The family of this 600-nucleotide part of an RNA from Croceimicrobium hydrocarbonivorans is "Bacterial large subunit ribosomal RNA". Lineage of the source: Bacteria > Bacteroidota > Flavobacteriia > Flavobacteriales > Croceimicrobium. Rfam 15.1 lists 51,934 matches to the family in 10,816 species. Its family is annotated with structural constituent of ribosome and ribosome in the Gene Ontology.

Nucleotides: 600
Base pairs, nucleotide, nucleotide: 005022006021007020008019009018025597026596027595028594029593030592031591032590034589035588036587038584039583046418047417048416049415051414052413053410054409055408056407057406059215060214061213062212066207067206069204070203071202072201075178077176078175079174080173081172082171083170084169085168086167087166088165089164090163092161102160103159104158105157106156109143110142111141118137119136120135121134122133123132124131125130182195183194184193218230219229220228221227231253232252233251234250235249236248254399256356257355262314263313264312265311266310267309268294269293271289272288273287274286275285295304296303319342320341321340325336326335327334344353345352346351367393368392369391370390371389372388373387375386376385427468428467429466431465432462433461434460435459436458437457438456442452443451479554480552481551482550483549484546485543486542487541488540489539492517493516495512496511497510498509499508500507519533520532521531522530523529560578561577562576563575564573565572566571
Number, partner (000 for none) and nucleotide at each position: 001000u002000a003000g004000u005022c006021u007020c008019g009018g010000u011000g012000a013000a014000g015000a016000u017000g018009c019008c020007g021006a022005g023000u024000a025597c026596c027595c028594g029593c030592a031591a032590u033000g034589g035588g036587a037000c038584g039583a040000a041000a042000a043000g044000a045000c046418c047417c048416c049415g050000u051414g052413a053410a054409c055408c056407u057406u058000c059215a060214c061213u062212a063000c064000a065000g066207c067206u068000u069204a070203g071202u072201a073000u074000u075178g076000a077176c078175u079174u080173c081172g082171g083170a084169u085168a086167a087166a088165c089164a090163a091000u092161g093000u094000g095000u096000a097000g098000g099000a100000u101000a102160g103159g104158u105157g106156g107000g108000a109143g110142a111141c112000u113000u114000u115000g116000a117000a118137g119136c120135a121134g122133c123132a124131u125130c126000g127000c128000c129000a130125g131124g132123u133122g134121u135120u136119g137118u138000g139000g140000a141111g142110u143109c144000a145000a146000c147000c148000u149000u150000g151000a152000a153000a154000u155000a156106c157105c158104a159103c160102c161092c162000u163090u164089u165088g166087u167086u168085u169084a170083u171082u172081u173080g174079a175078a176077g177000c178075c179000u180000a181000a182195c183194c184193c185000c186000g187000u188000c189000a190000u191000c192000g193184g194183g195182g196000g197000a198000c199000a200000g201072u202071g203070c204069u205000u206067g207066g208000u209000g210000g211000g212062u213061a214060g215059u216000u217000u218230g219229a220228c221227u222000g223000g224000g225000g226000u227221g228220g229219u230218c231253g232252c233251c234250u235249c236248c237000a238000a239000a240000a241000g242000a243000g244000u245000a246000a247000c248236g249235g250234a251233g252232g253231c254399u255000u256356c257355u258000a259000a260000a261000g262314g263313u264312g265311c266310c267309c268294u269293c270000a271289g272288c273287a274286c275285g276000c277000u278000u279000g280000g281000u282000a283000a284000c285275c286274g287273u288272g289271c290000g291000u292000a293269g294268a295304g296303u297000g298000c299000a300000a301000u302000g303296g304295c305000a306000u307000a308000a309267g310266g311265g312264c313263g314262c315000u316000u317000a318000a319342c320341u321340g322000u323000g324000a325336g326335a327334c328000c329000u330000a331000c332000a333000a334327g335326u336325c337000g338000a339000u340321c341320a342319g343000g344353u345352g346351c347000g348000a349000a350000a351346g352345c353344a354000g355257a356256g357000c358000a359000u360000a361000g362000u363000g364000a365000u366000c367393c368392g369391g370390u371389g372388g373387u374000u375386c376385c377000g378000u379000a380000u381000g382000g383000a384000a385376g386375g387373g388372c389371c390370a391369u392368c393367g394000c395000u396000c397000a398000a399254a400000g401000g402000a403000u404000a405000a406057a407056a408055g409054g410053u411000a412000c413052u414051c415049c416048g417047g418046g419000g420000a421000u422000a423000a424000c425000a426000g427468g428467c429466u430000g431465a432462u433461c434460u435459c436458c437457c438456c439000c440000a441000a442452g443451a444000g445000c446000u447000c448000a449000c450000a451443u452442c453000g454000a455000c456438g457437g458436g459435g460434g461433g462432g463000u464000u465431u466429g467428g468427c469000a470000c471000c472000u473000c474000g475000a476000u477000g478000u479554c480552g481551g482550c483549u484546c485543g486542u487541c488540a489539c490000a491000u492517c493516c494000u495512g496511g497510g498509g499508c500507u501000g502000g503000a504000g505000a506000a507500g508499g509498u510497c511496c512495c513000a514000a515000g516493g517492g518000u519533u520532g521531g522530g523529c524000u525000g526000u527000u528000c529523g530522c531521c532520c533519a534000u535000u536000a537000a538000a539489g540488u541487g542486g543485c544000a545000c546484g547000c548000g549483a550482g551481c552480u553000g554479g555000g556000u557000u558000c559000a560578g561577a562576a563575c564573g565572u566571c567000g568000c569000g570000a571566g572565a573564c574000a575563g576562u577561u578560c579000g580000g581000u582000c583039u584038c585000u586000a587036u588035c589034u590032a591031u592030u593029g594028c595027g596026g597025g598000c599000g600000u